Shown here is a 72-nucleotide RNA from Spizella passerina, a member of the family "Small nucleolar RNA SNORD77". The family has 21 seed sequences and 396 matches in Rfam 15.1. The family's RNA type in Rfam is C/D-box small nucleolar RNA. On this family, see Tycowski et al., Curr Biol 2004: "Guide RNAs with 5' caps and novel box C/D snoRNA-like domains for modification of snRNAs in metazoa". The match comes from Rfam's covariance-model search (55 bits). U77 belongs to the C/D family of snoRNAs. It is predicted to guide 2'O-ribose methylation of large 28S rRNA subunit at position A1521. The C/D snoRNAs U44, U47, U74, U75, U76, U78, U79, U80 and U81 share the same host gene as U77 (non-coding).

RNA sequence: AUACAGUGAUGACUGCAUAGUUCAGCAGAAUAUCCUGUGAUGAACAGUGCUUCGCCCCUAUCUGAUGUAUCU
Numbered sequence: 001a002u003a004c005a006g007u008g009a010u011g012a013c014u015g016c017a018u019a020g021u022u023c024a025g026c027a028g029a030a031u032a033u034c035c036u037g038u039g040a041u042g043a044a045c046a047g048u049g050c051u052u053c054g055c056c057c058c059u060a061u062c063u064g065a066u067g068u069a070u071c072u
Stems, first nucleotide, its partner, number of pairs: 001070004006041002009038002013028004046059002049055002